About this RNA:
The family of this 203-nucleotide RNA from Pseudonocardia oroxyli is "Actinobacteria sRNA Ms_IGR-5". It is annotated as a small RNA. The source organism's lineage runs through Bacteria, Bacillati, Actinomycetota, Pseudonocardiales and Pseudonocardia.
[Rfam]
RNA sequence: ACACAAGAAGGGAGGUGGUCCGACGUUGAUUUCCACGAGGACUUGUGAGGUGGCUGCCCGCUGAGGCACCACAGGACGAACUCCUGACGGUCGUGGAAGCCGAGAGCCUCGGCGAAUCCCCGGCAGUCACCGAUGAUCCCCGGGCCCGAGCCCAGUCCAGCUCGGUUCGCGUCUCACCCGAGACGGCCCGGGGAUCACCCAUG
Numbered sequence: 001a002c003a004c005a006a007g008a009a010g011g012g013a014g015g016u017g018g019u020c021c022g023a024c025g026u027u028g029a030u031u032u033c034c035a036c037g038a039g040g041a042c043u044u045g046u047g048a049g050g051u052g053g054c055u056g057c058c059c060g061c062u063g064a065g066g067c068a069c070c071a072c073a074g075g076a077c078g079a080a081c082u083c084c085u086g087a088c089g090g091u092c093g094u095g096g097a098a099g100c101c102g103a104g105a106g107c108c109u110c111g112g113c114g115a116a117u118c119c120c121c122g123g124c125a126g127u128c129a130c131c132g133a134u135g136a137u138c139c140c141c142g143g144g145c146c147c148g149a150g151c152c153c154a155g156u157c158c159a160g161c162u163c164g165g166u167u168c169g170c171g172u173c174u175c176a177c178c179c180g181a182g183a184c185g186g187c188c189c190g191g192g193g194a195u196c197a198c199c200c201a202u203g
Base pairs, nucleotide, nucleotide: 014058015057016056017055018054019053059114060113061112062111063110064109065108066107067106069104072102074100134197135196136195137194138193139192140191141190142189143188144187145186146185147164148163149162150161151160

Pairs were carried over by alignment from the consensus structure.